[Rfam]
RNA sequence: GGGUCAGCUUUAGCUCAGCGGCUACUUCGUCAUUUCAUUUCAUGAUUCAGAUCAUCUAACCUUUUGGGGUUCGAGGCCUGCGGGCGCUUUCUGACCCUUUU
Number, nucleotide and partner (000 for none) at each position: 001g000002g096003g095004u094005c093006a092007g091008c000009u000010u000011u000012a000013g085014c084015u083016c082017a000018g081019c080020g079021g078022c000023u000024a000025c000026u075027u074028c073029g072030u000031c000032a000033u000034u000035u000036c000037a000038u000039u000040u000041c000042a000043u000044g000045a000046u000047u000048c000049a000050g000051a000052u000053c000054a000055u000056c000057u000058a000059a000060c000061c000062u000063u000064u000065u000066g000067g000068g000069g000070u000071u000072c029073g028074a027075g026076g000077c000078c021079u020080g019081c018082g016083g015084g014085c013086g000087c000088u000089u000090u000091c007092u006093g005094a004095c003096c002097c000098u000099u000100u000101u000